RNA sequence: GACAAUAAACUGGCGAUGCAAUAAACCAUUCGGACCCGGGGGCGGUACCCGGCGCCUCCACCAUAAACGGUUCCGCCGAACCGCUUGUGAUGGGGGCGAAACAGGAUCGACGAGGGUGUAAAGAUCGUUCUUUUGUCCGGUAUGAUACCACCGUUAUCGGGUCAAUUCAGUAGUUGCAAACGACAACUAUGCAGAGGCACGUCUCGCUGCCUAA
Numbered sequence: 001g002a003c004a005a006u007a008a009a010c011u012g013g014c015g016a017u018g019c020a021a022u023a024a025a026c027c028a029u030u031c032g033g034a035c036c037c038g039g040g041g042g043c044g045g046u047a048c049c050c051g052g053c054g055c056c057u058c059c060a061c062c063a064u065a066a067a068c069g070g071u072u073c074c075g076c077c078g079a080a081c082c083g084c085u086u087g088u089g090a091u092g093g094g095g096g097c098g099a100a101a102c103a104g105g106a107u108c109g110a111c112g113a114g115g116g117u118g119u120a121a122a123g124a125u126c127g128u129u130c131u132u133u134u135g136u137c138c139g140g141u142a143u144g145a146u147a148c149c150a151c152c153g154u155u156a157u158c159g160g161g162u163c164a165a166u167u168c169a170g171u172a173g174u175u176g177c178a179a180a181c182g183a184c185a186a187c188u189a190u191g192c193a194g195a196g197g198c199a200c201g202u203c204u205c206g207c208u209g210c211c212u213a214a
Stems, first nucleotide, its partner, number of pairs: 001137005014127004026116002030113003036052005053098007138153004

A member of the RNA family "permuted transfer-messenger RNA" from Oricola cellulosilytica, 214 nucleotides long. Rfam describes the family as follows. Bacterial tmRNA, also known as 10Sa RNA or SsrA, is named for its dual tRNA and mRNA-like properties. The family's RNA type in Rfam is non-coding RNA gene. A search with the family's covariance model found it, with a score of 156 bits.